[Rfam]
RNA sequence: CUUGCUCAAAGCGGUGACCGGUCAUGUGACCGAAGGCUAAGCAAGACCUGUACCGAGAUGCCGUCCAGGGCGGCGUCCGG
Numbered sequence: 001c002u003u004g005c006u007c008a009a010a011g012c013g014g015u016g017a018c019c020g021g022u023c024a025u026g027u028g029a030c031c032g033a034a035g036g037c038u039a040a041g042c043a044a045g046a047c048c049u050g051u052a053c054c055g056a057g058a059u060g061c062c063g064u065c066c067a068g069g070g071c072g073g074c075g076u077c078c079g080g
Stems, first nucleotide, its partner, number of pairs: 001045006009038001011037002013018001019032005053080003057077008
About this RNA: Rfam assigns this 80-nucleotide RNA from Cupriavidus sp. YR651 to the family "Cupriavidus-1 RNA". Lineage of the source: Bacteria > Betaproteobacteria > Burkholderiales > Burkholderiaceae > Cupriavidus. The match comes from Rfam's covariance-model search (64 bits).